[Rfam]
RNA sequence: AUGUGGACUAGAGGCGCGGCUUUUAUGAGUACUUGUCCGGAGUGUCGGGACACAAGGAUGGACAAGGAAAGGAAAAUGCCGCCGAAGCUUGUGGGAGAUCCCGAUUGAACACAAGCUGGUGUUGUGCUCGAACAGGGGCAACACUGUCACAGAAGCCACGGCUUUUGUGGAGAGCUAAUCCGCAG
Number, nucleotide and partner (000 for none) at each position: 001a000002u000003g000004u000005g000006g180007a179008c000009u177010a176011g175012a000013g000014g000015c000016g082017c081018g080019g079020c078021u076022u075023u074024u073025a000026u000027g000028a000029g000030u000031a000032c066033u065034u064035g063036u062037c061038c060039g059040g000041a000042g000043u000044g000045u000046c000047g000048g000049g000050a000051c000052a000053c000054a000055a000056g000057g000058a000059u039060g038061g037062a036063c035064a034065a033066g032067g000068a000069a000070a000071g000072g000073a024074a023075a022076a021077u000078g020079c019080c018081g017082c016083c000084g000085a000086a117087g116088c115089u114090u113091g112092u111093g110094g000095g000096a000097g000098a000099u000100c000101c000102c000103g000104a000105u000106u000107g000108a000109a000110c093111a092112c091113a090114a089115g088116c087117u086118g145119g144120u143121g142122u141123u140124g139125u138126g000127c136128u135129c000130g000131a000132a000133c000134a000135g128136g127137g000138g125139c124140a123141a122142c121143a120144c119145u118146g000147u170148c169149a168150c167151a166152g165153a164154a000155g000156c000157c000158a000159c000160g000161g000162c000163u000164u153165u152166u151167g150168u149169g148170g147171a000172g000173a000174g000175c011176u010177a009178a000179u007180c006181c000182g000183c000184a000185g000
RNA: Lysine riboswitch aptamer
Organism: Thermoactinomyces sp. AS95